[Rfam]
RNA sequence: UUUAUAUGGUGGGCAUGGAGGCUGAAAAACUCACAUAGUUUGUGUUGUCAUCAGCUUCUUUUUUCAUUGUAAAACUGAAGUUAAACAUGAACACAACAUUU
Numbered sequence: 001u002u003u004a005u006a007u008g009g010u011g012g013g014c015a016u017g018g019a020g021g022c023u024g025a026a027a028a029a030c031u032c033a034c035a036u037a038g039u040u041u042g043u044g045u046u047g048u049c050a051u052c053a054g055c056u057u058c059u060u061u062u063u064u065c066a067u068u069g070u071a072a073a074a075c076u077g078a079a080g081u082u083a084a085a086c087a088u089g090a091a092c093a094c095a096a097c098a099u100u101u
Stems, first nucleotide, its partner, number of pairs: 041095006053082006060074004
Source information:
This 101-nucleotide RNA from Dendrobium catenatum belongs to the Rfam family "Small nucleolar RNA snoR97". Rfam 15.1 lists 862 matches to the family in 223 species. By type it is an H/ACA-box small nucleolar RNA. A reference for the family is Marker et al. (2002), "Experimental RNomics: identification of 140 candidates for small non-messenger RNAs in the plant Arabidopsis thaliana", Curr Biol. The base pairs follow the family's consensus structure, which was predicted with WAR. NCBI's taxonomy places the organism under Eukaryota, Embryophyta, Spermatophyta, Epidendroideae, Dendrobium.